Shown here is a 263-nucleotide part of an RNA from an uncultured Atribacterota bacterium, a member of the family "Bacterial large subunit ribosomal RNA".

RNA sequence: GGAUACUUGAGAGGGUCUGCCUCUAGUACGAGAGGACCGAGGUGGACGAACCGCUGGUGUACCAGUUGUCCUGCUCAGGGCAUUGCUGGGUAGCUAUGUUCGGUUGGGAGAAACGCUGAAAGCAUCUAAGCGUGAAACCCGCCUCAAGAUGAGGUAUCCAUCUGGCUUGAAGCCAGGAGAGAUCCCGGGAAGAAGACCCGGUUGAUAGGUCAGCUGUGGAAGACCAGUAAUGGUUUGAGCUAACUGAUCCUAAUAGAUCGAAG
Numbered sequence: 001g002g003a004u005a006c007u008u009g010a011g012a013g014g015g016u017c018u019g020c021c022u023c024u025a026g027u028a029c030g031a032g033a034g035g036a037c038c039g040a041g042g043u044g045g046a047c048g049a050a051c052c053g054c055u056g057g058u059g060u061a062c063c064a065g066u067u068g069u070c071c072u073g074c075u076c077a078g079g080g081c082a083u084u085g086c087u088g089g090g091u092a093g094c095u096a097u098g099u100u101c102g103g104u105u106g107g108g109a110g111a112a113a114c115g116c117u118g119a120a121a122g123c124a125u126c127u128a129a130g131c132g133u134g135a136a137a138c139c140c141g142c143c144u145c146a147a148g149a150u151g152a153g154g155u156a157u158c159c160a161u162c163u164g165g166c167u168u169g170a171a172g173c174c175a176g177g178a179g180a181g182a183u184c185c186c187g188g189g190a191a192g193a194a195g196a197c198c199c200g201g202u203u204g205a206u207a208g209g210u211c212a213g214c215u216g217u218g219g220a221a222g223a224c225c226a227g228u229a230a231u232g233g234u235u236u237g238a239g240c241u242a243a244c245u246g247a248u249c250c251u252a253a254u255a256g257a258u259c260g261a262a263g
Base pairs, nucleotide, nucleotide: 001159002158003157004156005155006154007153008152011145012144013143014142017045018044019043020042021041022040023039047102048101049100050099051098055096056095057094062089063088064087065086066085067082068081069080070079071078072077106140107139108138113133114132115131116130117129162176163175164174165173166172181259182258183257184256185201186200187199188198189197206252207251208250209248210247211246212245213244216240219236222235223234224233225232226231